[Rfam]
RNA sequence: ACUGGAGGACUACGAAGGCUGAGUCUGAUGAAGCAAGACUGCUGAUAUAAAUCCUCUUAGAAAAAAGGGUUGGAGAGAACAGCCCUUAUUGGAGAAUAGCACAGGGCUGACUGUAUUACCCAACAUUC
Numbered sequence: 001a002c003u004g005g006a007g008g009a010c011u012a013c014g015a016a017g018g019c020u021g022a023g024u025c026u027g028a029u030g031a032a033g034c035a036a037g038a039c040u041g042c043u044g045a046u047a048u049a050a051a052u053c054c055u056c057u058u059a060g061a062a063a064a065a066a067g068g069g070u071u072g073g074a075g076a077g078a079a080c081a082g083c084c085c086u087u088a089u090u091g092g093a094g095a096a097u098a099g100c101a102c103a104g105g106g107c108u109g110a111c112u113g114u115a116u117u118a119c120c121c122a123a124c125a126u127u128c
Base pairs, nucleotide, nucleotide: 002060003059004057005056006055007054008053009052017043018042019041023039024038025037026036067121068120069119070118078112080109081108082107083106084105085104086103090101091100
The family of this 128-nucleotide RNA sequence from Myotis brandtii is "Small Cajal body specific RNA 4". Rfam 15.1 lists 634 matches to the family in 510 species. The source organism's lineage runs through Eukaryota, Metazoa, Eumetazoa, Mammalia and Myotis. It scores 127 bits against the family's covariance model. Rfam classes the family as a small Cajal body RNA. Rfam's curators write: scaRNAs are a specific class of small nuclear RNAs which localise to the Cajal bodies and guide the modification of RNA polymerase II transcribed spliceosomal RNAs U1, U2, U4, U5 and U12. The base pairs follow the family's consensus structure, which was predicted with RNAfold. Its Rfam clan is "SCARNA4 clan".